Rfam assigns this 75-nucleotide sequence from Equus caballus to the family "Small nucleolar RNA SNORD24". For this family Rfam cites "U24, a novel intron-encoded small nucleolar RNA with two 12 nt long, phylogenetically conserved complementarities to 28S rRNA" (Qu et al., Nucleic Acids Res, 1995). It is annotated as a C/D-box small nucleolar RNA.

[Rfam]
RNA sequence: UGCAGAUGAUGUGAAGGAAUAUUUGCUAUCUGAGAGACGGUGACGACCCUUCAGACCACCAAGAUCGCUGAUGCA
Numbered sequence: 001u002g003c004a005g006a007u008g009a010u011g012u013g014a015a016g017g018a019a020u021a022u023u024u025g026c027u028a029u030c031u032g033a034g035a036g037a038c039g040g041u042g043a044c045g046a047c048c049c050u051u052c053a054g055a056c057c058a059c060c061a062a063g064a065u066c067g068c069u070g071a072u073g074c075a
Stems, first nucleotide, its partner, number of pairs: 001075004